[Rfam]
RNA sequence: AAGUGUUAUGGCUCUUUUAGAAUUUGUCUAGCAGGUUUUCCAGUCCUCGCUGGAAGACCCUA
Numbered sequence: 001a002a003g004u005g006u007u008a009u010g011g012c013u014c015u016u017u018u019a020g021a022a023u024u025u026g027u028c029u030a031g032c033a034g035g036u037u038u039u040c041c042a043g044u045c046c047u048c049g050c051u052g053g054a055a056g057a058c059c060c061u062a
Stems, first nucleotide, its partner, number of pairs: 034059011

This 62-nucleotide RNA from Propithecus coquereli belongs to the Rfam family "U7 small nuclear RNA". Taxonomically the source falls in Propithecus (Eukaryota, Euteleostomi, Dipnotetrapodomorpha, Boreoeutheria). Animal histone pre-mRNAs are spliced by a different mechanism than nuclear pre-mRNAs and self-splicing introns. This processing involves the U7 snRNP, which contains only one RNA species: U7. The 5' end of U7 RNA is thought to base-pair to a conserved spacer element downstream of the cleavage site in histone pre-mRNA. This family contains a number of annotated U7 pseudogenes. A search with the family's covariance model found it, with a score of 68 bits. A reference for the family is Spycher et al. (1994), "3' end processing of mouse histone pre-mRNA: evidence for additional base-pairing between U7 snRNA and pre-mRNA", Nucleic Acids Res.